Notes: The family of this 131-nucleotide RNA sequence from Microcebus murinus is "Small nucleolar RNA SNORA1". Rfam classes the family as an H/ACA-box small nucleolar RNA. The organism belongs to Microcebus, within Eukaryota. About the family: ACA1 is a member of the H/ACA class of snoRNA that guide the sites of modification of uridines to pseudouridines. Gene Ontology terms of the family: nucleolus and RNA processing. The base pairs follow the family's consensus structure, which was predicted with PFOLD.
RNA sequence: AGCCUCAUUCUAGAUGAGAAUGGACACUUGAUCAUAGUGUCCAAAAAUUGUUGAUGUGGCUAAAUUGACACAGGUUAUGCUUCCAUCACAGUACAUGUAUUACAGUGGUGACAAUGAGACCUGUAACAUUU
Numbered sequence: 001a002g003c004c005u006c007a008u009u010c011u012a013g014a015u016g017a018g019a020a021u022g023g024a025c026a027c028u029u030g031a032u033c034a035u036a037g038u039g040u041c042c043a044a045a046a047a048u049u050g051u052u053g054a055u056g057u058g059g060c061u062a063a064a065u066u067g068a069c070a071c072a073g074g075u076u077a078u079g080c081u082u083c084c085a086u087c088a089c090a091g092u093a094c095a096u097g098u099a100u101u102a103c104a105g106u107g108g109u110g111a112c113a114a115u116g117a118g119a120c121c122u123g124u125a126a127c128a129u130u131u
Base pairs, nucleotide, nucleotide: 002060003059004058006056007055008054021043022042023041024040025039026038027037070124071123072122073121074120084110085109086108087107088106089105